[Rfam]
RNA sequence: CAUUCGGGAUAAAAUGCUAAGUUACGCGCCUUGCUGGCGCAACGCCUUUGUGACCUACAUCCUGUAAG
Dot-bracket structure: ...........(((.((........(((((.....)))))...)).)))....(.(((.....))).)